[Rfam]
RNA: U2 spliceosomal RNA
RNA sequence: GCACCUUCCUGGCCUUUGGCUACGAUCAAGUGUAGUGCUACACUUAUCUCUGGUAGUGAAGCGUUCCUGCUUCACAUCCAGAUUCAACUUAUUUCUUGUGGGGGACCAGUUGGCACUCACGCCCACAGCUUGCUCUGGGCAGCCGCUGGUCGCCGAUCGGCUUUGCACUGCACGCACCGCGAAGUUCUUCAAACGGUCGACCCCUU
Numbered sequence: 001g002c003a004c005c006u007u008c009c010u011g012g013c014c015u016u017u018g019g020c021u022a023c024g025a026u027c028a029a030g031u032g033u034a035g036u037g038c039u040a041c042a043c044u045u046a047u048c049u050c051u052g053g054u055a056g057u058g059a060a061g062c063g064u065u066c067c068u069g070c071u072u073c074a075c076a077u078c079c080a081g082a083u084u085c086a087a088c089u090u091a092u093u094u095c096u097u098g099u100g101g102g103g104g105a106c107c108a109g110u111u112g113g114c115a116c117u118c119a120c121g122c123c124c125a126c127a128g129c130u131u132g133c134u135c136u137g138g139g140c141a142g143c144c145g146c147u148g149g150u151c152g153c154c155g156a157u158c159g160g161c162u163u164u165g166c167a168c169u170g171c172a173c174g175c176a177c178c179g180c181g182a183a184g185u186u187c188u189u190c191a192a193a194c195g196g197u198c199g200a201c202c203c204c205u206u
Base pairs, nucleotide, nucleotide: 007025008024011021012020013019014018036055037054038053039052040051057074058073059072060071061070062069063068104151105150106149107148108147109146110145125136127134128133154199155198156197157196158195159194161184162183163182164181165180166179